The record is a 210-nucleotide RNA from Lonepinella koalarum, which matches "Lysine riboswitch aptamer" in Rfam. Gene Ontology term of the family: lysine biosynthetic process. NCBI's taxonomy places the organism under Bacteria, Pseudomonadati, Pseudomonadota, Pasteurellaceae, Lonepinella. The match comes from Rfam's covariance-model search (120 bits).

RNA sequence: UACAAAUGUAGAGGUGCGAAUAUUAUAAGUAUUUUUUCGGAGUGGAUAACGGAGAAGAAAAAUGAAAGGAAUAUUUGCCGAAAUCAAUUAAAAGUCGUUUUGAUUGGUUGGUGACGUUAUCGAAAGAAACGUUACUGUCAUAGUCUAGGGGAUAACAUUUUAAUUAAAAAUCUUAUACCCGUUUAUUUACUAUGGAGCGCUACUGUUAGG
Numbered sequence: 001u002a003c004a005a006a007u008g009u010a011g012a013g014g015u016g017c018g019a020a021u022a023u024u025a026u027a028a029g030u031a032u033u034u035u036u037u038c039g040g041a042g043u044g045g046a047u048a049a050c051g052g053a054g055a056a057g058a059a060a061a062a063u064g065a066a067a068g069g070a071a072u073a074u075u076u077g078c079c080g081a082a083a084u085c086a087a088u089u090a091a092a093a094g095u096c097g098u099u100u101u102g103a104u105u106g107g108u109u110g111g112u113g114a115c116g117u118u119a120u121c122g123a124a125a126g127a128a129a130c131g132u133u134a135c136u137g138u139c140a141u142a143g144u145c146u147a148g149g150g151g152a153u154a155a156c157a158u159u160u161u162a163a164u165u166a167a168a169a170a171u172c173u174u175a176u177a178c179c180c181g182u183u184u185a186u187u188u189a190c191u192a193u194g195g196a197g198c199g200c201u202a203c204u205g206u207u208a209g210g
Base pairs, nucleotide, nucleotide: 008203009202010201011200016078017077018076019075020074021073022072023071024070033062034061035060036059037058038057082109083108084107085106086105087104088103089102090101091100092099093098110136111135112134113133114132115131116130117129118128120126138195139194140193141192142191143190144189